Source information: Shown here is a 31-nucleotide RNA sequence from Crocuta crocuta, a member of the family "Iron response element II". Pairs were carried over by alignment from the consensus structure, which is taken from published work. About the family: IRE, TFRC, SLC40A1, SDHB, SLC11A2, CDC42BPA, ACO2, ALAS2_H.SAPIENS, CDC14A, EPAS1, ALAS2, qoxD, Hao1, NDUFS1, transferrin, Aconitate. The literature on the family includes a 1995 paper in J Biol Chem by Kohler et al., "Succinate dehydrogenase b mRNA of Drosophila melanogaster has a functional iron-responsive element in its 5'-untranslated region".
RNA sequence: CUAAAAUCGUGAACAGUGUUUUACAUUUUUA
Numbered sequence: 001c002u003a004a005a006a007u008c009g010u011g012a013a014c015a016g017u018g019u020u021u022u023a024c025a026u027u028u029u030u031a
Stems, first nucleotide, its partner, number of pairs: 003029005009024005014018001

A search with the family's covariance model found it, with a score of 30 bits.